A member of the RNA family "Small nucleolar RNA snoR104" from Daucus carota, 116 nucleotides long. A reference for the family is Marker et al. (2002), "Experimental RNomics: identification of 140 candidates for small non-messenger RNAs in the plant Arabidopsis thaliana", Curr Biol. It scores 77 bits against the family's covariance model. The family's consensus secondary structure was predicted with WAR. By type it is an H/ACA-box small nucleolar RNA. The family has 8 seed sequences and 612 matches in Rfam 15.1.
RNA sequence: GGGGAACAUCCAUAGUUGUAGAUGUUGCCUGAUAUAAGCUUCCUAUAGAAAACUCUAUAAUUUCCUGCUUGUGGCUGUUAAGAAAGUUCACAUGUCUCCAAUUAUAAGAUACACAG
Numbered sequence: 001g002g003g004g005a006a007c008a009u010c011c012a013u014a015g016u017u018g019u020a021g022a023u024g025u026u027g028c029c030u031g032a033u034a035u036a037a038g039c040u041u042c043c044u045a046u047a048g049a050a051a052a053c054u055c056u057a058u059a060a061u062u063u064c065c066u067g068c069u070u071g072u073g074g075c076u077g078u079u080a081a082g083a084a085a086g087u088u089c090a091c092a093u094g095u096c097u098c099c100a101a102u103u104a105u106a107a108g109a110u111a112c113a114c115a116g
Stems, first nucleotide, its partner, number of pairs: 001030003005026006054109003067095002070092005076086001078085001